[Rfam]
RNA: Small nucleolar RNA SNORD69
Organism: Cavia porcellus
RNA sequence: CCUAUGAAGCAAAUGAUGACAAACUGGAUCUGACUCACUGUGCUGAGUGUUUUCAAUCCAACCCUGAGCUUCAUGUU
Numbered sequence: 001c002c003u004a005u006g007a008a009g010c011a012a013a014u015g016a017u018g019a020c021a022a023a024c025u026g027g028a029u030c031u032g033a034c035u036c037a038c039u040g041u042g043c044u045g046a047g048u049g050u051u052u053u054c055a056a057u058c059c060a061a062c063c064c065u066g067a068g069c070u071u072c073a074u075g076u077u
Base pairs, nucleotide, nucleotide: 003075004074005073006072007071008070009069010068